RNA sequence: GACGGCCCCUCACGUGGCGCCAUCCAGGCCAACUCCCCCAGGUCGGAAACGAAGCAAGGGUAACCAGGCUCUGGCGGGUGCGUGAGGGGUCUUCUCU
Numbered sequence: 001g002a003c004g005g006c007c008c009c010u011c012a013c014g015u016g017g018c019g020c021c022a023u024c025c026a027g028g029c030c031a032a033c034u035c036c037c038c039c040a041g042g043u044c045g046g047a048a049a050c051g052a053a054g055c056a057a058g059g060g061u062a063a064c065c066a067g068g069c070u071c072u073g074g075c076g077g078g079u080g081c082g083u084g085a086g087g088g089g090u091c092u093u094c095u096c097u
Base pairs, nucleotide, nucleotide: 004091005090006089007088008087009086010085011084012083013082014081015078018076019075020074021073022072024068025067027065028064035060036059037058043052044051045050
About this RNA: Bacterial small signal recognition particle RNA: a 97-nucleotide sequence from Gulosibacter macacae. The family's consensus secondary structure is taken from published work. It scores 63 bits against the family's covariance model. The family is grouped with related families in Rfam's "SRP clan". By type it is a non-coding RNA gene.